[Rfam]
RNA sequence: AUGUGACACAUUUCGAAUUUCGAGAUUCAAACAAGUCUAUCUUUGCCCGUAAAUUUUUCCUAUAUCUUUUAAAUAUUUUGAAUUAUCAAUUAUUGAGACUUAUAGUACUUUUUAUGUAGUUUACAAAUAUAUAAAUUUCAUUUUAAAAAAAAUUGAAGAUUUCAUGAGCAAAUUCUCGGUCAAACUUAAACUGUUUGACUCUCGAAAAGUGAAAUAUGUCACAUAA
Numbered sequence: 001a002u003g004u005g006a007c008a009c010a011u012u013u014c015g016a017a018u019u020u021c022g023a024g025a026u027u028c029a030a031a032c033a034a035g036u037c038u039a040u041c042u043u044u045g046c047c048c049g050u051a052a053a054u055u056u057u058u059c060c061u062a063u064a065u066c067u068u069u070u071a072a073a074u075a076u077u078u079u080g081a082a083u084u085a086u087c088a089a090u091u092a093u094u095g096a097g098a099c100u101u102a103u104a105g106u107a108c109u110u111u112u113u114a115u116g117u118a119g120u121u122u123a124c125a126a127a128u129a130u131a132u133a134a135a136u137u138u139c140a141u142u143u144u145a146a147a148a149a150a151a152a153u154u155g156a157a158g159a160u161u162u163c164a165u166g167a168g169c170a171a172a173u174u175c176u177c178g179g180u181c182a183a184a185c186u187u188a189a190a191c192u193g194u195u196u197g198a199c200u201c202u203c204g205a206a207a208a209g210u211g212a213a214a215u216a217u218g219u220c221a222c223a224u225a226a
Stems, first nucleotide, its partner, number of pairs: 001224008010215006018207008027198007035191002038188002042184004047179003052174005057168003061164001062162001064160006076148007084140001094133002097130001100126002103123003107120003